RNA sequence: UGCCGCAAACCCGUAGAUCCGAACUUGUGGUGACUCUCUGCGCAAGUUCAUAUCUAUAGGUAUGUGUCAA
Numbered sequence: 001u002g003c004c005g006c007a008a009a010c011c012c013g014u015a016g017a018u019c020c021g022a023a024c025u026u027g028u029g030g031u032g033a034c035u036c037u038c039u040g041c042g043c044a045a046g047u048u049c050a051u052a053u054c055u056a057u058a059g060g061u062a063u064g065u066g067u068c069a070a
Stems, first nucleotide, its partner, number of pairs: 002068001004066004010060002015055004021049009

mir-10 microRNA precursor family: a 70-nucleotide RNA from Gadus morhua. The source organism's lineage runs through Eukaryota, Teleostei, Osteoglossocephalai, Gadidae and Gadus. A reference for the family is Lee and Ambros (2001), "An extensive class of small RNAs in Caenorhabditis elegans", Science.